[Rfam]
The record is a 97-nucleotide sequence from Leptolyngbyaceae cyanobacterium T60_A2020_046, which matches "Bacterial small signal recognition particle RNA" in Rfam.
NCBI's taxonomy places the organism under Bacteria, Bacillati, Cyanobacteriota, Cyanophyceae, Leptolyngbyaceae.
Rfam classes the family as a non-coding RNA gene.
Gene Ontology terms of the family: SRP-dependent cotranslational protein targeting to membrane, signal sequence recognition and signal recognition particle, plasma membrane targeting.
RNA sequence: GACCUGGACCCAUGCGGUCGCAACGCCCAAACCAUGUCAGGACCGGAAGGUAGCAGCAUUACGGGAUGCUUGUGACAGGCGUGGUCUCCGGGUCUCU
Dot-bracket structure: ...(((((.(((((..((((((...(((.....((((....(((....)))....))))...))).....))))))...)))))..)))))......
The family is grouped with related families in Rfam's "SRP clan".
About the family: The signal recognition particle (SRP) is a universally conserved ribonucleoprotein involved in the co-translational targeting of proteins to membranes.